Overview:
Rfam assigns this 111-nucleotide sequence from Pueribacillus theae to the family "PyrR binding site". It scores 62 bits against the family's covariance model. Rfam links the family to the GO terms pyrimidine nucleobase biosynthetic process and pyrimidine nucleobase transport.

RNA sequence: AAUCUCUUUUAAAGAAGUCCAGAGAGGCUUGGAAAGAGGAUGAUGUGCUCACCGUUUUUACGGGAGUGCUGUAAACUCUUUGCCAAGCUGCAGGCAAGGAGUUUUUUAUUU
Numbered sequence: 001a002a003u004c005u006c007u008u009u010u011a012a013a014g015a016a017g018u019c020c021a022g023a024g025a026g027g028c029u030u031g032g033a034a035a036g037a038g039g040a041u042g043a044u045g046u047g048c049u050c051a052c053c054g055u056u057u058u059u060a061c062g063g064g065a066g067u068g069c070u071g072u073a074a075a076c077u078c079u080u081u082g083c084c085a086a087g088c089u090g091c092a093g094g095c096a097a098g099g100a101g102u103u104u105u106u107u108a109u110u111u
Stems, first nucleotide, its partner, number of pairs: 003039007015030005046068005052063004071106001073104012
It is annotated as a cis-regulatory element. The base pairs follow the family's consensus structure, which is taken from published work. Rfam describes the family as follows. This family represents the PyrR binding site and terminator structure. This RNA structure is found upstream of a variety of genes involved in pyrimidine biosynthesis and transport. The alignment also includes a portion of the antiterminator structure.